[Rfam]
RNA sequence: UUCCGAUAAAGCCAACUCCGUCUGCAAGGCGGGGACGGAAAGCCAAGGGUCUCCCUCAAGAUUUUGAGAAGAUGGCCGGGCCGCCGAA
Numbered sequence: 001u002u003c004c005g006a007u008a009a010a011g012c013c014a015a016c017u018c019c020g021u022c023u024g025c026a027a028g029g030c031g032g033g034g035a036c037g038g039a040a041a042g043c044c045a046a047g048g049g050u051c052u053c054c055c056u057c058a059a060g061a062u063u064u065u066g067a068g069a070a071g072a073u074g075g076c077c078g079g080g081c082c083g084c085c086g087a088a
Stems, first nucleotide, its partner, number of pairs: 012038002017033006042081003047077002049073003056067004

Rfam assigns this 88-nucleotide sequence from Geomesophilobacter sediminis to the family "c-di-GMP-I riboswitch aptamer". Lineage of the source: Bacteria > Thermodesulfobacteriota > Geobacterales > Geobacteraceae > Geomesophilobacter. It scores 58 bits against the family's covariance model. Its Rfam clan is "c-di-GMP_I riboswitch clan".